[Rfam]
RNA: MIR7486 microRNA precursor family
Organism: Gossypium davidsonii
RNA sequence: CACGUCAGCGCGAUGUGCUGACUCAGCAGGAAAUCGCUUCCUGUAGGACGCGAUUUCCUGCUGAGUCAGCAUAUCGCGCUGACGUGG
Numbered sequence: 001c002a003c004g005u006c007a008g009c010g011c012g013a014u015g016u017g018c019u020g021a022c023u024c025a026g027c028a029g030g031a032a033a034u035c036g037c038u039u040c041c042u043g044u045a046g047g048a049c050g051c052g053a054u055u056u057c058c059u060g061c062u063g064a065g066u067c068a069g070c071a072u073a074u075c076g077c078g079c080u081g082a083c084g085u086g087g
Base pairs, nucleotide, nucleotide: 001086002085003084004083005082006081007080008079009078010077011076012075013074014073015072016071017070018069019068020067021066023064024063025062026061027060028059029058030057031056032055033054034053035052036051037050040047041046